This 132-nucleotide RNA sequence from Rattus norvegicus belongs to the Rfam family "Small nucleolar RNA SNORA17". Gene Ontology terms of the family: RNA processing and nucleolus. Rfam's curators put it in the seed alignment. snoRNA ACA 17 belongs to the H/ACA family of snoRNAs and is predicted to guide pseudouridylation of the 28S rRNA at positions U4659 and U4598. It shares the same host gene together with ACA43.
RNA sequence: CCUGCCCCUAGAGGCACUGCAGGUGUGGCUGCUGUGUCACAUGUGCGUCAGUAGGUGGCAGAGAGGAAAGAGGCUAUGUCUACGCUCAGUGUUCUGACCUGUGAACAUUUGAAUGAUUAGUAGCCUAAUAUU
Numbered sequence: 001c002c003u004g005c006c007c008c009u010a011g012a013g014g015c016a017c018u019g020c021a022g023g024u025g026u027g028g029c030u031g032c033u034g035u036g037u038c039a040c041a042u043g044u045g046c047g048u049c050a051g052u053a054g055g056u057g058g059c060a061g062a063g064a065g066g067a068a069a070g071a072g073g074c075u076a077u078g079u080c081u082a083c084g085c086u087c088a089g090u091g092u093u094c095u096g097a098c099c100u101g102u103g104a105a106c107a108u109u110u111g112a113a114u115g116a117u118u119a120g121u122a123g124c125c126u127a128a129u130a131u132u
Base pairs, nucleotide, nucleotide: 002061003060004059005058006057007055008054009053010052013049014048015047019046020045021044024041025040026039027038028037029036068129071126072125073124074123075122076121077120083115084114086112087111088110089109090107091106092105093104094103